[Rfam]
RNA sequence: AUAUCGUCGACGAACAGGAAGAGUAAUUAUAAAAGUUCGGCUACAGCGAGUCGGGAAUGGUGGGAGCCUGAUGCAAGAAUUUAUAAUGAAUGGACCUGGGAGACGUGGCCCGAACUUUGGUAGGCGCCACCGGUCAUCUCCGACCGUUAACAAAGGAGCGCGUAUCGCCUGUGGGUAGGCCGUACGUAGUGAGCCGGGUCUUUAUGACCAAUUGGGGUGGCACCGCGGAUAACCUUCGUCCCUAGA
Numbered sequence: 001a002u003a004u005c006g007u008c009g010a011c012g013a014a015c016a017g018g019a020a021g022a023g024u025a026a027u028u029a030u031a032a033a034a035g036u037u038c039g040g041c042u043a044c045a046g047c048g049a050g051u052c053g054g055g056a057a058u059g060g061u062g063g064g065a066g067c068c069u070g071a072u073g074c075a076a077g078a079a080u081u082u083a084u085a086a087u088g089a090a091u092g093g094a095c096c097u098g099g100g101a102g103a104c105g106u107g108g109c110c111c112g113a114a115c116u117u118u119g120g121u122a123g124g125c126g127c128c129a130c131c132g133g134u135c136a137u138c139u140c141c142g143a144c145c146g147u148u149a150a151c152a153a154a155g156g157a158g159c160g161c162g163u164a165u166c167g168c169c170u171g172u173g174g175g176u177a178g179g180c181c182g183u184a185c186g187u188a189g190u191g192a193g194c195c196g197g198g199u200c201u202u203u204a205u206g207a208c209c210a211a212u213u214g215g216g217g218u219g220g221c222a223c224c225g226c227g228g229a230u231a232a233c234c235u236u237c238g239u240c241c242c243u244a245g246a
Stems, first nucleotide, its partner, number of pairs: 007103002015098004026087006040074002050072006106129004110124002131146005197209004214243004225239005